[Rfam]
RNA sequence: CAAGUUGGCUAGGCAGUCGCCGCUCAAUUUAUUGGGGGGAGGAAAGUCCGGGCUUCGCAGGGUAAAGUGCCAGGUAACGCCUGGGGGGCGUGAGCCUACGGAAAGUGCAGCAGAAAAUACACCGCCUAAGCAGUUUACUGCCGGUAAGGUUGAAAUGGUGCGGUAAGAGCGCACCGCGCGACUGGCAACAGUUCGUGGCUAGGUAAACCCCACUUGAAGCAAGACCAAAUAGGAACUCUUUGGCGUGACCCGCGCUGAGUUCGGGUAGGUUGCUAAAGACGUGCAGUGAUGUACGUAUUAGAUGAAUGACUGUCCACGACAGAACCCGGCUUAUCGGCCAACUUGCAAU
Numbered sequence: 001c002a003a004g005u006u007g008g009c010u011a012g013g014c015a016g017u018c019g020c021c022g023c024u025c026a027a028u029u030u031a032u033u034g035g036g037g038g039g040a041g042g043a044a045a046g047u048c049c050g051g052g053c054u055u056c057g058c059a060g061g062g063u064a065a066a067g068u069g070c071c072a073g074g075u076a077a078c079g080c081c082u083g084g085g086g087g088g089c090g091u092g093a094g095c096c097u098a099c100g101g102a103a104a105g106u107g108c109a110g111c112a113g114a115a116a117a118u119a120c121a122c123c124g125c126c127u128a129a130g131c132a133g134u135u136u137a138c139u140g141c142c143g144g145u146a147a148g149g150u151u152g153a154a155a156u157g158g159u160g161c162g163g164u165a166a167g168a169g170c171g172c173a174c175c176g177c178g179c180g181a182c183u184g185g186c187a188a189c190a191g192u193u194c195g196u197g198g199c200u201a202g203g204u205a206a207a208c209c210c211c212a213c214u215u216g217a218a219g220c221a222a223g224a225c226c227a228a229a230u231a232g233g234a235a236c237u238c239u240u241u242g243g244c245g246u247g248a249c250c251c252g253c254g255c256u257g258a259g260u261u262c263g264g265g266u267a268g269g270u271u272g273c274u275a276a277a278g279a280c281g282u283g284c285a286g287u288g289a290u291g292u293a294c295g296u297a298u299u300a301g302a303u304g305a306a307u308g309a310c311u312g313u314c315c316a317c318g319a320c321a322g323a324a325c326c327c328g329g330c331u332u333a334u335c336g337g338c339c340a341a342c343u344u345g346c347a348a349u
Base pairs, nucleotide, nucleotide: 001345002344003343004342005341006340007339008338009337010336011334012314013313014312015311016310017309018308020039021038023036024035025034026033027032044332045331046330048329049328050327051326052325053219054218055217056216060251061250062249063248065215066214067213068212069211070084071083072082073081074080085099086097087096088095089094100210101209105208106207107204108203122149123148124145125144126143130141131140132139133138157175158174159173160172161171162170176199177197178196179195180194181193182191183190184189223271224270225269226268233262234261235260236259237258238257242256243255244254245253246252279296280295281294282293283292284291285290
Rfam assigns this 349-nucleotide RNA from Marinomonas sp. MWYL1 to the family "Bacterial RNase P class A".
It is annotated as a ribozyme.
Rfam's curators put it in the seed alignment.
NCBI's taxonomy places the organism under Bacteria, Pseudomonadota, Gammaproteobacteria, Oceanospirillaceae, Marinomonas.